[Rfam]
RNA sequence: UGGCUUAGACAGUCAGAUGUAGUUGUUCGGUGGUUUCCCUAGGCGCAUAAAGUAGCUGCAGGUGUCUCCUCCCUCGCCUGUAUGGCAAUGCGUCUAUCUAGCCUCGCUCAUCCUUCAAGAGAGCGAGGCUUUUU
Numbered sequence: 001u002g003g004c005u006u007a008g009a010c011a012g013u014c015a016g017a018u019g020u021a022g023u024u025g026u027u028c029g030g031u032g033g034u035u036u037c038c039c040u041a042g043g044c045g046c047a048u049a050a051a052g053u054a055g056c057u058g059c060a061g062g063u064g065u066c067u068c069c070u071c072c073c074u075c076g077c078c079u080g081u082a083u084g085g086c087a088a089u090g091c092g093u094c095u096a097u098c099u100a101g102c103c104u105c106g107c108u109c110a111u112c113c114u115u116c117a118a119g120a121g122a123g124c125g126a127g128g129c130u131u132u133u134u
Base pairs, nucleotide, nucleotide: 040096041095042094043093044092045091046090047089058081059080060079061078062077063076064075101129102128103127104126105125106124107123108122109121111120112119

Annotation
This 134-nucleotide RNA sequence from Phytoamicus setariae belongs to the Rfam family "Rhizobiales sRNA Atu_C7". The family's consensus secondary structure was predicted with WAR. It is annotated as a small RNA. For this family Rfam cites "Deep sequencing uncovers numerous small RNAs on all four replicons of the plant pathogen Agrobacterium tumefaciens" (Wilms et al., RNA Biol, 2012).